Source information
Rfam assigns this 86-nucleotide RNA from Symbiobacterium thermophilum to the family "Group II catalytic intron D1-D4-1". The base pairs follow the family's consensus structure.

RNA sequence: UAACCCGGGCCGAGAGGCCCGGCUGAACCGGCAGAAGUCAGCAAAGGCCAUAGUACCGGCAGGGGGACGCCCCGAGCGGGAAGGGU
Numbered sequence: 001u002a003a004c005c006c007g008g009g010c011c012g013a014g015a016g017g018c019c020c021g022g023c024u025g026a027a028c029c030g031g032c033a034g035a036a037g038u039c040a041g042c043a044a045a046g047g048c049c050a051u052a053g054u055a056c057c058g059g060c061a062g063g064g065g066g067a068c069g070c071c072c073c074g075a076g077c078g079g080g081a082a083g084g085g086u
Stems, first nucleotide, its partner, number of pairs: 001025002005022007038045001047086003056079003062073003